[Rfam]
RNA: mir-412 microRNA precursor family
RNA sequence: GGGUACGGGGAUGGAUGGUCGACCAGUUGGAAAGUAAUUGUUUCUAAUGUACUUCACCUGGUCCACUAGCCGUCCGUAUCCGCUGCAG
Numbered sequence: 001g002g003g004u005a006c007g008g009g010g011a012u013g014g015a016u017g018g019u020c021g022a023c024c025a026g027u028u029g030g031a032a033a034g035u036a037a038u039u040g041u042u043u044c045u046a047a048u049g050u051a052c053u054u055c056a057c058c059u060g061g062u063c064c065a066c067u068a069g070c071c072g073u074c075c076g077u078a079u080c081c082g083c084u085g086c087a088g
Base pairs, nucleotide, nucleotide: 001081002080003079004078005077006076009074011073012072013071014070016068017067018066019065021063022062023061024060025059026058028056029055030054033053034052035051036050037048038047039046040045